[Rfam]
RNA sequence: GCCGGACUUUACGGUCUGUAAUCCUUCGGGAGGCCUUAAAGACGGAAUUCCCGCGCAGAUGGUGCAGGGCCAUUUAGCUACUUGUAGACAGAUCGCCCUUGGUGAGUUUACUGCUCGGCUUCGCGCCUCUCUGACGAGGAGCGCUGCUGCCGAAUAAUUGUCGGAGGACCGGGUCAGGCAGGACACUGAGCAGCCCACUUCGAAGCAGCGAACGGCAUCUGGAAAACGGACUGGAGAGUGCGGUGGAACCACCCUCAUCAACUGCACUGGGGGAACCAGACUUUUU
Numbered sequence: 001g002c003c004g005g006a007c008u009u010u011a012c013g014g015u016c017u018g019u020a021a022u023c024c025u026u027c028g029g030g031a032g033g034c035c036u037u038a039a040a041g042a043c044g045g046a047a048u049u050c051c052c053g054c055g056c057a058g059a060u061g062g063u064g065c066a067g068g069g070c071c072a073u074u075u076a077g078c079u080a081c082u083u084g085u086a087g088a089c090a091g092a093u094c095g096c097c098c099u100u101g102g103u104g105a106g107u108u109u110a111c112u113g114c115u116c117g118g119c120u121u122c123g124c125g126c127c128u129c130u131c132u133g134a135c136g137a138g139g140a141g142c143g144c145u146g147c148u149g150c151c152g153a154a155u156a157a158u159u160g161u162c163g164g165a166g167g168a169c170c171g172g173g174u175c176a177g178g179c180a181g182g183a184c185a186c187u188g189a190g191c192a193g194c195c196c197a198c199u200u201c202g203a204a205g206c207a208g209c210g211a212a213c214g215g216c217a218u219c220u221g222g223a224a225a226a227c228g229g230a231c232u233g234g235a236g237a238g239u240g241c242g243g244u245g246g247a248a249c250c251a252c253c254c255u256c257a258u259c260a261a262c263u264g265c266a267c268u269g270g271g272g273g274a275a276c277c278a279g280a281c282u283u284u285u286u
Stems, first nucleotide, its partner, number of pairs: 001034003004017005022031003038284004043279001045277001048275005054269001056264003060260005073245001075243001077241001079240005085234001089233003093229003097222002101219004106213004111208004116152004121146001123144004128139004153159002161203006171196004179188003